[Rfam]
RNA sequence: GUCAAUUUUUAUUAGUUCCUUGCUUCCUCUGGACGACCGGGCCAACUUGGGAAGCUGAAUAAUCCGUAAGGAGCAAUCAAUG
Numbered sequence: 001g002u003c004a005a006u007u008u009u010u011a012u013u014a015g016u017u018c019c020u021u022g023c024u025u026c027c028u029c030u031g032g033a034c035g036a037c038c039g040g041g042c043c044a045a046c047u048u049g050g051g052a053a054g055c056u057g058a059a060u061a062a063u064c065c066g067u068a069a070g071g072a073g074c075a076a077u078c079a080a081u082g
Stems, first nucleotide, its partner, number of pairs: 015074007022055006030044003
Annotation
RpsF leader: an 82-nucleotide sequence from Vibrio palustris. It is annotated as a cis-regulatory leader. Lineage of the source: Bacteria > Pseudomonadati > Gammaproteobacteria > Vibrionales > Vibrio. The match comes from Rfam's covariance-model search (53 bits). The literature on the family includes a 2014 paper in RNA by Fu et al., "Bacterial RNA motif in the 5' UTR of rpsF interacts with an S6:S18 complex". About the family: Conserved and widely distributed to many bacterial species RNA structure. It precedes operon containing rpsF, which encodes ribosomal protein S6. The motif also precedes operon containing rpsR, which encodes ribosomal protein S18.